[Rfam]
RNA sequence: GUCGAGCUCGGUUGCGUGAGCUUAUAACCCAAGCGGGGAUAUCAAAGUGGUUGAACAUUGAGCUUACUCAACUAGUUGGGCCACUGGUUGCUAGAUGCUGGCAUGCCCGUUCCAAGCUAGGAGUUUGGGCCAUGUGGUCCAGGCGAAGGUAUGGGCUUCGUGGCUCUUAAAGUGGAGGGCACUGCGUCAGGCUGGCUUCACAGAGCAGCGAAAACCUCCCGCUCUUUGUAGUGGAAGGAUAACGUGUCGGUGCUCCAUUGGCUCACCAAAGCUAGAUGGGCUGGCCCUAACUAAACAAUCACUUUU
Numbered sequence: 001g002u003c004g005a006g007c008u009c010g011g012u013u014g015c016g017u018g019a020g021c022u023u024a025u026a027a028c029c030c031a032a033g034c035g036g037g038g039a040u041a042u043c044a045a046a047g048u049g050g051u052u053g054a055a056c057a058u059u060g061a062g063c064u065u066a067c068u069c070a071a072c073u074a075g076u077u078g079g080g081c082c083a084c085u086g087g088u089u090g091c092u093a094g095a096u097g098c099u100g101g102c103a104u105g106c107c108c109g110u111u112c113c114a115a116g117c118u119a120g121g122a123g124u125u126u127g128g129g130c131c132a133u134g135u136g137g138u139c140c141a142g143g144c145g146a147a148g149g150u151a152u153g154g155g156c157u158u159c160g161u162g163g164c165u166c167u168u169a170a171a172g173u174g175g176a177g178g179g180c181a182c183u184g185c186g187u188c189a190g191g192c193u194g195g196c197u198u199c200a201c202a203g204a205g206c207a208g209c210g211a212a213a214a215c216c217u218c219c220c221g222c223u224c225u226u227u228g229u230a231g232u233g234g235a236a237g238g239a240u241a242a243c244g245u246g247u248c249g250g251u252g253c254u255c256c257a258u259u260g261g262c263u264c265a266c267c268a269a270a271g272c273u274a275g276a277u278g279g280g281c282u283g284g285c286c287c288u289a290a291c292u293a294a295a296c297a298a299u300c301a302c303u304u305u306u
Base pairs, nucleotide, nucleotide: 001040002039003038004023005022006021007020008019009018010017028037029036030035044305045304046303047302048301049300050299051298052297053296057292058290059289060288062285063284064283068279069278070277072275073274074273075272076271077270078264079263080262081261082260083259085257086256090253092252093251098250099249100248101247102246103245104244105243107238108237110236111235112234113233114232116229117228119226120225121224122223123222124221127166128165129164130163131162132161133160134159136157137156138155139154140153141152143150144149167172174219175218176217177216178215183212185210186209187208192203193202194201

This 306-nucleotide RNA sequence from Sesamum indicum belongs to the Rfam family "Plant signal recognition particle RNA". Gene Ontology terms of the family: signal recognition particle, endoplasmic reticulum targeting and SRP-dependent cotranslational protein targeting to membrane, signal sequence recognition. It is annotated as a non-coding RNA gene. A reference for the family is Rosenblad et al. (2009), "Kinship in the SRP RNA family", RNA Biol.